[Rfam]
RNA sequence: CCAUCGAGUAGAAGCGGUUAGCGCCGAUGCGCCUCCCCCAGCGGGCAGGCGCAUGCCGGCGCGGGACAUUGCUCUCGCG
Numbered sequence: 001c002c003a004u005c006g007a008g009u010a011g012a013a014g015c016g017g018u019u020a021g022c023g024c025c026g027a028u029g030c031g032c033c034u035c036c037c038c039c040a041g042c043g044g045g046c047a048g049g050c051g052c053a054u055g056c057c058g059g060c061g062c063g064g065g066a067c068a069u070u071g072c073u074c075u076c077g078c079g
Stems, first nucleotide, its partner, number of pairs: 006074005015064001018066002021062006

The family of this 79-nucleotide RNA sequence from Cupriavidus basilensis is "Xanthine riboswitch aptamer (NMT1 RNA)". On this family, see Yu and Breaker, RNA 2020: "A bacterial riboswitch class senses xanthine and uric acid to regulate genes associated with purine oxidation". Gene Ontology term of the family: purine nucleobase binding. NCBI's taxonomy places the organism under Bacteria, Pseudomonadati, Pseudomonadota, Burkholderiaceae, Cupriavidus. It scores 50 bits against the family's covariance model.